Rfam assigns this 351-nucleotide sequence from Spongiibacter pelagi to the family "Bacterial RNase P class A".
By type it is a ribozyme.
RNA sequence: UGAGUCAGCUGGACGGCCGCUCGGCUUUUGCUGGGAGGAAAGUCCGGGCUCCAUAGGGUAAAGCGCCAGGUAACGCCUGGGAGGCGAGAGCCUACGGAAAGUGCAACAGAGAGUAUACCGCCGAACUCGAGUUUAUCUUGGGUGGUAAGGGUGAAAUGGUGCGGUAAGAGCGCACCGCGCAGCUGGCAACAGUCUGUGGCGAUGGUAAACCCCGCUUGGAGCAAGGCCAAAUAGGAAUCCUUUGCUGCGACCCGCAGUGGAUUCGGGUAGGCUGCUUGAGGCUUGCGGUGACGCAGGUCCCAGAUGAAUGGUCGUCCACGACAGAACCCGGCUUAUAGGCUGACUCUUUUU
Numbered sequence: 001u002g003a004g005u006c007a008g009c010u011g012g013a014c015g016g017c018c019g020c021u022c023g024g025c026u027u028u029u030g031c032u033g034g035g036a037g038g039a040a041a042g043u044c045c046g047g048g049c050u051c052c053a054u055a056g057g058g059u060a061a062a063g064c065g066c067c068a069g070g071u072a073a074c075g076c077c078u079g080g081g082a083g084g085c086g087a088g089a090g091c092c093u094a095c096g097g098a099a100a101g102u103g104c105a106a107c108a109g110a111g112a113g114u115a116u117a118c119c120g121c122c123g124a125a126c127u128c129g130a131g132u133u134u135a136u137c138u139u140g141g142g143u144g145g146u147a148a149g150g151g152u153g154a155a156a157u158g159g160u161g162c163g164g165u166a167a168g169a170g171c172g173c174a175c176c177g178c179g180c181a182g183c184u185g186g187c188a189a190c191a192g193u194c195u196g197u198g199g200c201g202a203u204g205g206u207a208a209a210c211c212c213c214g215c216u217u218g219g220a221g222c223a224a225g226g227c228c229a230a231a232u233a234g235g236a237a238u239c240c241u242u243u244g245c246u247g248c249g250a251c252c253c254g255c256a257g258u259g260g261a262u263u264c265g266g267g268u269a270g271g272c273u274g275c276u277u278g279a280g281g282c283u284u285g286c287g288g289u290g291a292c293g294c295a296g297g298u299c300c301c302a303g304a305u306g307a308a309u310g311g312u313c314g315u316c317c318a319c320g321a322c323a324g325a326a327c328c329c330g331g332c333u334u335a336u337a338g339g340c341u342g343a344c345u346c347u348u349u350u351u
Stems, first nucleotide, its partner, number of pairs: 002346009011336001012316007020035006040334003044331005049221004056253004061217005066080005081095001082093004096212002101210002103206002118150002120146003125143006158176006177200001178198005183192003225273004235264006244258005280299008